[Rfam]
RNA sequence: UUGCCUUAAACUAAUGAGUAAGGAAAACAAAGCGAGCGGUGAGAGCUGCUCGCCGCGCACAUAAAAAAUUUUAUGCGCACGAAUUUGUGGAGGGGUUAUAGGCUGGCCGGGCGUUGACACUGCUUACUUUGCAGGACUCACCCGUGCGGGCCUCCCAACCC
Numbered sequence: 001u002u003g004c005c006u007u008a009a010a011c012u013a014a015u016g017a018g019u020a021a022g023g024a025a026a027a028c029a030a031a032g033c034g035a036g037c038g039g040u041g042a043g044a045g046c047u048g049c050u051c052g053c054c055g056c057g058c059a060c061a062u063a064a065a066a067a068a069u070u071u072u073a074u075g076c077g078c079a080c081g082a083a084u085u086u087g088u089g090g091a092g093g094g095g096u097u098a099u100a101g102g103c104u105g106g107c108c109g110g111g112c113g114u115u116g117a118c119a120c121u122g123c124u125u126a127c128u129u130u131g132c133a134g135g136a137c138u139c140a141c142c143c144g145u146g147c148g149g150g151c152c153u154c155c156c157a158a159c160c161c
Stems, first nucleotide, its partner, number of pairs: 004023005032053008055078004093161005100153005106147001108144002111141001113139001120134004
RNA: U12 minor spliceosomal RNA